[Rfam]
RNA sequence: ACACGGGAAGGGAGGUGGUCCGAAGUUGUAUAAGCGUUGGACUCGUGAGGUGACUGUCCGCUAGCCGUUGUCCUCAGGACUCGCAUCGCCGAGACCGCGACACAGCGGCCCAGCGAAUACGAGACAGCCACCCGACCCUCGGGGUACCGGCCCAGUCCAGCCGGUCCGCGCACAGAGCGCGGAAGCCCCGGGGGUCGUUUCUA
Numbered sequence: 001a002c003a004c005g006g007g008a009a010g011g012g013a014g015g016u017g018g019u020c021c022g023a024a025g026u027u028g029u030a031u032a033a034g035c036g037u038u039g040g041a042c043u044c045g046u047g048a049g050g051u052g053a054c055u056g057u058c059c060g061c062u063a064g065c066c067g068u069u070g071u072c073c074u075c076a077g078g079a080c081u082c083g084c085a086u087c088g089c090c091g092a093g094a095c096c097g098c099g100a101c102a103c104a105g106c107g108g109c110c111c112a113g114c115g116a117a118u119a120c121g122a123g124a125c126a127g128c129c130a131c132c133c134g135a136c137c138c139u140c141g142g143g144g145u146a147c148c149g150g151c152c153c154a155g156u157c158c159a160g161c162c163g164g165u166c167c168g169c170g171c172a173c174a175g176a177g178c179g180c181g182g183a184a185g186c187c188c189c190g191g192g193g194g195u196c197g198u199u200u201c202u203a
Base pairs, nucleotide, nucleotide: 014058015057016056017055018054019053059115060114061113062112064110065108066107067106069104070103071102133197134196135195136194137193138192139191140190141189142188143187144186145185146165147164148163149162150161151160
The record is a 203-nucleotide sequence from Rugosimonospora africana, which matches "Actinobacteria sRNA Ms_IGR-5" in Rfam.
The base pairs follow the family's consensus structure.
A search with the family's covariance model found it, with a score of 97 bits.
The organism belongs to Rugosimonospora, within Bacteria.